Rfam assigns this 79-nucleotide RNA sequence from Nitrosospira sp. Nsp1 to the family "SAH (S-adenosyl-L-homocysteine) riboswitch aptamer".
[Rfam]
RNA sequence: CAUGCCGAGGAGCGCUGCAACGGGUACAGUCCCGCGAGGCUCGGCAGGGAAGGAUCGUAACAAACGGCGCUCGUUCAUC
Number, nucleotide and partner (000 for none) at each position: 001c000002a000003u046004g045005c044006c043007g042008a041009g000010g000011a000012g000013c000014g000015c000016u000017g000018c000019a000020a000021c034022g033023g032024g031025u000026a000027c000028a000029g000030u000031c024032c023033c022034g021035c000036g000037a000038g000039g000040c000041u008042c007043g006044g005045c004046a003047g000048g000049g000050a000051a000052g000053g000054a000055u000056c000057g000058u000059a000060a000061c000062a000063a000064a000065c000066g000067g000068c000069g000070c000071u000072c000073g000074u000075u000076c000077a000078u000079c000

Lineage of the source: Bacteria > Pseudomonadati > Pseudomonadota > Betaproteobacteria > Nitrosospira. A search with the family's covariance model found it, with a score of 63 bits. The base pairs follow the family's consensus structure, which is taken from published work.